RNA sequence: CCAGGGUCUCACGCCCCUGGCUAUGACCUGUCAUCCUUACGGGAUU
Numbered sequence: 001c002c003a004g005g006g007u008c009u010c011a012c013g014c015c016c017c018u019g020g021c022u023a024u025g026a027c028c029u030g031u032c033a034u035c036c037u038u039a040c041g042g043g044a045u046u
Base pairs, nucleotide, nucleotide: 001020002019003018004017005016006015008013033045034044035043036042037041
Dot-bracket structure: ((((((.(....).))))))............(((((...))))).
Record summary: A member of the RNA family "Acido-Lenti-1 RNA" from Membranihabitans marinus, 46 nucleotides long. A search with the family's covariance model found it, with a score of 38 bits.